[Rfam]
RNA sequence: AGACAGUGCCUUUCAGGCAUCCUCUCCCAAAACUUCCACGGCUCGGUCGGCAACGAUCGGGCCAUUUUUUUGCCUGUU
Numbered sequence: 001a002g003a004c005a006g007u008g009c010c011u012u013u014c015a016g017g018c019a020u021c022c023u024c025u026c027c028c029a030a031a032a033c034u035u036c037c038a039c040g041g042c043u044c045g046g047u048c049g050g051c052a053a054c055g056a057u058c059g060g061g062c063c064a065u066u067u068u069u070u071u072g073c074c075u076g077u078u
Base pairs, nucleotide, nucleotide: 008018009017010016011015040063041062042061043060044059045058046057047056048055

A member of the RNA family "Makes More Granules Regulator RNA (mmgR)" from Novosphingobium silvae, 78 nucleotides long. Its Rfam clan is "suhB sRNA clan". The match comes from Rfam's covariance-model search (52 bits).